[Rfam]
RNA: Bacterial large signal recognition particle RNA
RNA sequence: CCGUGCUAGAUGGGGAGUUAGCGGUGCCCUGUAACCUGCAAUCCGCUGCAGCAGGAUUGAAUUCCUAGCCGAGACAUUGGCUUUUGAGGUCUGACCCUCAAAAGUGACGUUGAUAAGUGGGUCCCACGCAACGGAUGUCUAUGAACCUCGUCAGGACCGGAAGGUAGCAGCGAUAAAUAGAAUGUUUCGUGUGCCGUGGCCAACCUAUUUUGAGUUUACUCUUUGGGUAACGUUCGGAGGCCAUUGUCAGAGUUAGGUGCACGG
Numbered sequence: 001c002c003g004u005g006c007u008a009g010a011u012g013g014g015g016a017g018u019u020a021g022c023g024g025u026g027c028c029c030u031g032u033a034a035c036c037u038g039c040a041a042u043c044c045g046c047u048g049c050a051g052c053a054g055g056a057u058u059g060a061a062u063u064c065c066u067a068g069c070c071g072a073g074a075c076a077u078u079g080g081c082u083u084u085u086g087a088g089g090u091c092u093g094a095c096c097c098u099c100a101a102a103a104g105u106g107a108c109g110u111u112g113a114u115a116a117g118u119g120g121g122u123c124c125c126a127c128g129c130a131a132c133g134g135a136u137g138u139c140u141a142u143g144a145a146c147c148u149c150g151u152c153a154g155g156a157c158c159g160g161a162a163g164g165u166a167g168c169a170g171c172g173a174u175a176a177a178u179a180g181a182a183u184g185u186u187u188c189g190u191g192u193g194c195c196g197u198g199g200c201c202a203a204c205c206u207a208u209u210u211u212g213a214g215u216u217u218a219c220u221c222u223u224u225g226g227g228u229a230a231c232g233u234u235c236g237g238a239g240g241c242c243a244u245u246g247u248c249a250g251a252g253u254u255a256g257g258u259g260c261a262c263g264g
Stems, first nucleotide, its partner, number of pairs: 001264006009058003012030004017025003035055005064257006073248004079242010092232002096227003100223002104219002106216003115210008124199005129191002132189004138181005148173004156165003
Dot-bracket structure: ((((((..(((((((.(((...))).))))....(((((...........)))))))).....((((((...((((..((((((((((...((..(((.((..(((((......((((((((.(((((((.((((..(((((.....((((....(((....)))....))))...)))))....))))))...)))))...))))))))...))).))..)).)))...))))))))))))..))))...)))))).))))))